A member of the RNA family "mir-460 microRNA precursor family" from Clupea harengus, 76 nucleotides long. Gene Ontology terms of the family: RISC complex and miRNA-mediated post-transcriptional gene silencing. The literature on the family includes a 2005 paper in Genes Dev by Chen et al., "The developmental miRNA profiles of zebrafish as determined by small RNA cloning". The source organism's lineage runs through Eukaryota, Bilateria, Chordata, Clupeocephala and Clupea.

[Rfam]
RNA sequence: UUUCCCAGCAUCCUCAUUGUGCAUGCUGUGUGUUCUGUGUCCUUCUCACAGCGCCUGCAAUGUGGAGGCUGUGAGG
Numbered sequence: 001u002u003u004c005c006c007a008g009c010a011u012c013c014u015c016a017u018u019g020u021g022c023a024u025g026c027u028g029u030g031u032g033u034u035c036u037g038u039g040u041c042c043u044u045c046u047c048a049c050a051g052c053g054c055c056u057g058c059a060a061u062g063u064g065g066a067g068g069c070u071g072u073g074a075g076g
Stems, first nucleotide, its partner, number of pairs: 012065002015062007024053001026051005